[Rfam]
RNA sequence: GUUUUUGCAGAUGCAGCAUCUUCAAGAUUCACAUAGAUUUUAUAGAGUUCCAUAGGUCACGAGUGAAAGUAGUUAAUAUUAAUUAUUUUGCUCCUAUGGUCCUUUUAAUUAAUUGAUGUGAGAAUCUUGAUGAUGCUGCAGCGGCAAUGAA
Numbered sequence: 001g002u003u004u005u006u007g008c009a010g011a012u013g014c015a016g017c018a019u020c021u022u023c024a025a026g027a028u029u030c031a032c033a034u035a036g037a038u039u040u041u042a043u044a045g046a047g048u049u050c051c052a053u054a055g056g057u058c059a060c061g062a063g064u065g066a067a068a069g070u071a072g073u074u075a076a077u078a079u080u081a082a083u084u085a086u087u088u089u090g091c092u093c094c095u096a097u098g099g100u101c102c103u104u105u106u107a108a109u110u111a112a113u114u115g116a117u118g119u120g121a122g123a124a125u126c127u128u129g130a131u132g133a134u135g136c137u138g139c140a141g142c143g144g145c146a147a148u149g150a151a
Stems, first nucleotide, its partner, number of pairs: 010142001012140009022130009032120004
RNA: mir-172 microRNA precursor family
Organism: Anisodus acutangulus